[Rfam]
RNA sequence: GAUUGUUGAGGUCGGAAAUGGUUCCCGACACUCCUCGAAAGAGGAACCUGAGAUGCAGGAUACACCGCCCUGCCUUCAAUC
Numbered sequence: 001g002a003u004u005g006u007u008g009a010g011g012u013c014g015g016a017a018a019u020g021g022u023u024c025c026c027g028a029c030a031c032u033c034c035u036c037g038a039a040a041g042a043g044g045a046a047c048c049u050g051a052g053a054u055g056c057a058g059g060a061u062a063c064a065c066c067g068c069c070c071u072g073c074c075u076u077c078a079a080u081c
Base pairs, nucleotide, nucleotide: 001081002080003079004078005077008074011029012028013027014026015025019067020066021065022064031050032045033044034043035042055073056072057071058070059069